rpsB sRNA: a 110-nucleotide RNA sequence from Agrobacterium sp. AGB01. Rfam classes the family as a small RNA. Rfam 15.1 lists 245 matches to the family in 245 species. A reference for the family is Meyer et al. (2009), "Identification of candidate structured RNAs in the marine organism 'Candidatus Pelagibacter ubique'", BMC Genomics.

RNA sequence: CACACGCGAAGCUUGGGAUGUUCCGGGAGAAAUCCGGUUCGUUCCGCCCGGUGGCACUCUUUAAAACAGUGCUGUUCGCUUCGCGGGGGUUAAACCGGAAAAGGAGUUAC
Numbered sequence: 001c002a003c004a005c006g007c008g009a010a011g012c013u014u015g016g017g018a019u020g021u022u023c024c025g026g027g028a029g030a031a032a033u034c035c036g037g038u039u040c041g042u043u044c045c046g047c048c049c050g051g052u053g054g055c056a057c058u059c060u061u062u063a064a065a066a067c068a069g070u071g072c073u074g075u076u077c078g079c080u081u082c083g084c085g086g087g088g089g090u091u092a093a094a095c096c097g098g099a100a101a102a103g104g105a106g107u108u109a110c
Base pairs, nucleotide, nucleotide: 001088003086005085006084007083008082009081010080011079015045016044023037024036026035053073054072055071056070057069058068
Dot-bracket structure: (.(.(((((((...((......((.(........)))......)).......((((((.........)))))).....)))))))).)......................